[Rfam]
RNA sequence: AAGAACAUUCGGUAGGUGAGGCUACCACAGGGAUAAGGGUUACUGCCGGUUAAAGGUGGAGACACCUCUAAUCAGGUCAGCAGUCUGUGUCGCUGUAAGGCGCAGAAUAAUGUAAUUUCACGCCCUGUGAAGCUAAAGCUUGAACGGAUUGGAUAC
Numbered sequence: 001a002a003g004a005a006c007a008u009u010c011g012g013u014a015g016g017u018g019a020g021g022c023u024a025c026c027a028c029a030g031g032g033a034u035a036a037g038g039g040u041u042a043c044u045g046c047c048g049g050u051u052a053a054a055g056g057u058g059g060a061g062a063c064a065c066c067u068c069u070a071a072u073c074a075g076g077u078c079a080g081c082a083g084u085c086u087g088u089g090u091c092g093c094u095g096u097a098a099g100g101c102g103c104a105g106a107a108u109a110a111u112g113u114a115a116u117u118u119c120a121c122g123c124c125c126u127g128u129g130a131a132g133c134u135a136a137a138g139c140u141u142g143a144a145c146g147g148a149u150u151g152g153a154u155a156c
Stems, first nucleotide, its partner, number of pairs: 006151002009148002011145001013098001015140003020134003026129007039116005045077003049073001055066004084106003089101003